[Rfam]
A member of the RNA family "Bacillus-plasmid RNA" from Alteribacillus bidgolensis, 54 nucleotides long. A search with the family's covariance model found it, with a score of 53 bits. Pairs were carried over by alignment from the consensus structure, which is taken from published work. Taxonomically the source falls in Alteribacillus (Bacteria, Bacillati, Bacillota, Bacillaceae).
RNA sequence: CGUGUCAACGGUAGCGGACCGAAGAGAGCAUAAGGAGUUGACACGUUGCACAAA
Numbered sequence: 001c002g003u004g005u006c007a008a009c010g011g012u013a014g015c016g017g018a019c020c021g022a023a024g025a026g027a028g029c030a031u032a033a034g035g036a037g038u039u040g041a042c043a044c045g046u047u048g049c050a051c052a053a054a
Stems, first nucleotide, its partner, number of pairs: 001045009